[Rfam]
RNA sequence: ACUGGAUAAUUCCAAAGGGAUUGCAUUGAUUCAUCUUAUAUAACAAGAUGAAUCGUGCAAUCUCUUUGGAAUCUUCCAG
Numbered sequence: 001a002c003u004g005g006a007u008a009a010u011u012c013c014a015a016a017g018g019g020a021u022u023g024c025a026u027u028g029a030u031u032c033a034u035c036u037u038a039u040a041u042a043a044c045a046a047g048a049u050g051a052a053u054c055g056u057g058c059a060a061u062c063u064c065u066u067u068g069g070a071a072u073c074u075u076c077c078a079g
Stems, first nucleotide, its partner, number of pairs: 002079005009072013023058004028054005036047001
The record is a 79-nucleotide RNA from Taxus chinensis, which matches "mir-393 microRNA precursor family" in Rfam. For this family Rfam cites "Role of microRNAs and other sRNAs of plants in their changing environments" (Kruszka et al., J Plant Physiol, 2012). Gene Ontology terms of the family: miRNA-mediated post-transcriptional gene silencing and RISC complex.